[Rfam]
RNA sequence: UGGCGAUGAAGCAACUGACUGGUUCGGCAUCAGCCGAUUGUGGAGCCAGACCGUGGGUUGAGCGUGAACCACAAGCCGAAUAGAUUCGAUAAAUCGAAAGAAAAUACUAUAA
Dot-bracket structure: ((((......((((.((.(((..[[[[...))).)).))))...)))).............(.(...........]]]]...((((.....)))).........).).....
drum RNA: a 112-nucleotide RNA. From the family's description: Firmicutes, Bacteroidetes (1 example), Proteobacteria (2 examples), Spirochaetes (2 examples). The base pairs follow the family's consensus structure, which is taken from published work.